[Rfam]
The record is a 140-nucleotide RNA sequence from Microbacterium oleivorans, which matches "FMN riboswitch aptamer (RFN element)" in Rfam. NCBI's taxonomy places the organism under Bacteria, Actinomycetes, Micrococcales, Microbacteriaceae, Microbacterium. Pairs were carried over by alignment from the consensus structure, which is taken from published work.

Nucleotides: 140
Base pairs, nucleotide, nucleotide: 003138004137005136006135007134008133009131010130016028017027018026032093033092034048035047036046037045043091044090051069052068053067074088075087076086077085095122096121097120
Number, partner (000 for none) and nucleotide at each position: 001000a002000a003138c004137g005136u006135g007134c008133u009131c010130c011000g012000g013000g014000g015000u016028c017027g018026g019000u020000g021000a022000g023000a024000a025000u026018c027017c028016g029000a030000a031000c032093c033092g034048g035047c036046g037045g038000u039000g040000a041000c042000a043091g044090u045037c046036c047035g048034c049000g050000a051069g052068c053067g054000g055000g056000a057000c058000c059000u060000c061000u062000g063000g064000u065000c066000c067053u068052g069051c070000u071000g072000a073000c074088c075087c076086g077085g078000u079000g080000g081000a082000a083000u084000u085077c086076c087075g088074g089000a090044a091043c092033c093032g094000a095122c096121g097120g098000u099000g100000a101000u102000g103000c104000g105000a106000c107000g108000c109000a110000a111000g112000u113000c114000g115000c116000u117000a118000g119000u120097c121096c122095g123000g124000a125000u126000g127000g128000g129000a130010g131009g132000c133008a134007g135006c136005a137004c138003g139000g140000a